The family of this 133-nucleotide sequence from Aquarana catesbeiana is "Small nucleolar RNA SNORA9". The base pairs follow the family's consensus structure, which was predicted with PFOLD. Taxonomically the source falls in Aquarana (Eukaryota, Metazoa, Euteleostomi, Ranoidea). ACA9 is a member of the H/ACA class of snoRNA that guide the sites of modification of uridines to pseudouridines. A search with the family's covariance model found it, with a score of 97 bits.
RNA sequence: GUGCAAGUUUUCCAGCAUGUCCGAGCUGGCUGUAGCUCUGGUCACUCCUGUGGACUCUGCUAGAUCAUCCCUGGGGUGGUUUGAGGCCUCUUCCUGCUCCUCCGGUAGGAGGUUUCAGAAACCCCAGACACUU
Numbered sequence: 001g002u003g004c005a006a007g008u009u010u011u012c013c014a015g016c017a018u019g020u021c022c023g024a025g026c027u028g029g030c031u032g033u034a035g036c037u038c039u040g041g042u043c044a045c046u047c048c049u050g051u052g053g054a055c056u057c058u059g060c061u062a063g064a065u066c067a068u069c070c071c072u073g074g075g076g077u078g079g080u081u082u083g084a085g086g087c088c089u090c091u092u093c094c095u096g097c098u099c100c101u102c103c104g105g106u107a108g109g110a111g112g113u114u115u116c117a118g119a120a121a122c123c124c125c126a127g128a129c130a131c132u133u
Stems, first nucleotide, its partner, number of pairs: 003060003007056001018044002023038005072126005087112006094105003
Dot-bracket structure: ..(((.(..........((...(((((......)))))....))...........).)))...........(((((..........((((((.(((......))).)))))).........))))).......